[Rfam]
RNA: Bacteriophage Diversity-Generating Retroelement RNA
RNA sequence: AACUAUAGAACGCCCCAGCUUCUUGUUUGAUCUUACGAUCAGCUUUCUUAUCUGCUUCGGCAAAACAAAACUUAGAUUUGAUGUAUGCAGAGUAUGAAAUAUAGAAACGCAUUGUCAAU
Number, nucleotide and partner (000 for none) at each position: 001a027002a026003c000004u025005a024006u000007a023008g022009a021010a020011c000012g019013c018014c000015c000016c000017a000018g013019c012020u010021u009022c008023u007024u005025g004026u002027u001028u000029g000030a000031u000032c000033u000034u000035a000036c000037g000038a000039u000040c000041a000042g000043c000044u000045u000046u000047c000048u000049u000050a000051u000052c000053u062054g061055c060056u000057u000058c000059g000060g055061c054062a053063a000064a000065a000066c000067a000068a000069a000070a000071c000072u000073u000074a000075g000076a119077u000078u118079u117080g116081a115082u114083g000084u000085a000086u111087g110088c109089a000090g000091a000092g000093u000094a000095u103096g102097a000098a000099a000100u000101a000102u096103a095104g000105a000106a000107a000108c000109g088110c087111a086112u000113u000114g082115u081116c080117a079118a078119u076